The record is a 142-nucleotide sequence from Paenibacillus albiflavus, which matches "Group II catalytic intron D1-D4-4" in Rfam. It scores 51 bits against the family's covariance model.
RNA sequence: UAGUUGGAGAUUGUUCAACUGAAGGAGGGGUUAAGUCACCUUCGUAGUUAGGAUACCGACGUGGAAAAAUCUGCGCGUAGAAGCGCAUCGAUGAAAGUACCAGUCAGAGACAGAGCGAGCAAUAAACCAGGCCGUAAUAUAA
Numbered sequence: 001u002a003g004u005u006g007g008a009g010a011u012u013g014u015u016c017a018a019c020u021g022a023a024g025g026a027g028g029g030g031u032u033a034a035g036u037c038a039c040c041u042u043c044g045u046a047g048u049u050a051g052g053a054u055a056c057c058g059a060c061g062u063g064g065a066a067a068a069a070u071c072u073g074c075g076c077g078u079a080g081a082a083g084c085g086c087a088u089c090g091a092u093g094a095a096a097g098u099a100c101c102a103g104u105c106a107g108a109g110a111c112a113g114a115g116c117g118a119g120c121a122a123u124a125a126a127c128c129a130g131g132c133c134g135u136a137a138u139a140u141a142a
Base pairs, nucleotide, nucleotide: 020044021043022042023041024040052089053088054087056085057080059078060077061076062075064071065070097116098115101113103111104110119135120134
Group II introns are found in rRNA, tRNA and mRNA of organelles in fungi, plants and protists, and also in mRNA in bacteria. Pairs were carried over by alignment from the consensus structure. A reference for the family is Bonen and Vogel (2001), "The ins and outs of group II introns", Trends Genet. Lineage of the source: Bacteria > Bacilli > Caryophanales > Paenibacillaceae > Paenibacillus.